[Rfam]
RNA sequence: GUUGCAAGUUUGAGGUCCUAGCAGAAGCGCUCACAAUGCAGUCCUGUCAGAUUCCAACAGAUCUGUGAAUUCAGCU
Numbered sequence: 001g002u003u004g005c006a007a008g009u010u011u012g013a014g015g016u017c018c019u020a021g022c023a024g025a026a027g028c029g030c031u032c033a034c035a036a037u038g039c040a041g042u043c044c045u046g047u048c049a050g051a052u053u054c055c056a057a058c059a060g061a062u063c064u065g066u067g068a069a070u071u072c073a074g075c076u
Stems, first nucleotide, its partner, number of pairs: 012044001014043003020076003024072003027039003048065006
Rfam assigns this 76-nucleotide RNA from Alligator mississippiensis to the family "Mammalian CPEB3 ribozyme".
The organism belongs to Alligator, within Eukaryota.
A search with the family's covariance model found it, with a score of 40 bits.
Rfam links the family to the GO term RNA nuclease activity.